[Rfam]
RNA sequence: CUGCAACCAAUUAAGCCAACCGAGCUCCUUUUCUCAUGGAGGCCCAGUGUGCAAACAGCAGCUUUCUUGAUAAUAUACACAGCCAAUUUUGUGAAUGGGCUACUCUAAGGGACCUUGGAGACAACC
Numbered sequence: 001c002u003g004c005a006a007c008c009a010a011u012u013a014a015g016c017c018a019a020c021c022g023a024g025c026u027c028c029u030u031u032u033c034u035c036a037u038g039g040a041g042g043c044c045c046a047g048u049g050u051g052c053a054a055a056c057a058g059c060a061g062c063u064u065u066c067u068u069g070a071u072a073a074u075a076u077a078c079a080c081a082g083c084c085a086a087u088u089u090u091g092u093g094a095a096u097g098g099g100c101u102a103c104u105c106u107a108a109g110g111g112a113c114c115u116u117g118g119a120g121a122c123a124a125c126c
Stems, first nucleotide, its partner, number of pairs: 002053004019048002022045001025042002028039001069114001071112001081101004
The record is a 126-nucleotide RNA sequence from Cebus imitator, which matches "Small nucleolar RNA SNORA70" in Rfam. Rfam links the family to the GO terms RNA processing and nucleolus. On this family, see Charette and Gray, IUBMB Life 2000: "Pseudouridine in RNA: what, where, how, and why". Rfam classes the family as an H/ACA-box small nucleolar RNA. Rfam describes the family as follows. snoRNA U70 seems to be exclusive to mammals and is a member of the H/ACA class of snoRNA which contain H (ANANNA) and ACA box motifs. H/ACA box snoRNAs are involved in the conversion of uridines to pseudouridines (5-ribosyluracil) a constituent of structural RNAs (transfer, ribosomal, small nuclear, and small nucleolar).